[Rfam]
RNA: mir-27 microRNA precursor family
Organism: Danionella cerebrum
RNA sequence: UCUAGACGCAGAGCUUAGCUAAUCGGUGAGCAACGAUCCCUUAAAUACUGUUCACAGUGGCUAAGUUCAGUGCCUGAG
Numbered sequence: 001u002c003u004a005g006a007c008g009c010a011g012a013g014c015u016u017a018g019c020u021a022a023u024c025g026g027u028g029a030g031c032a033a034c035g036a037u038c039c040c041u042u043a044a045a046u047a048c049u050g051u052u053c054a055c056a057g058u059g060g061c062u063a064a065g066u067u068c069a070g071u072g073c074c075u076g077a078g
Base pairs, nucleotide, nucleotide: 011068012067013066014065015064016063017062018061019060020059026055027054028053029052030051031050032049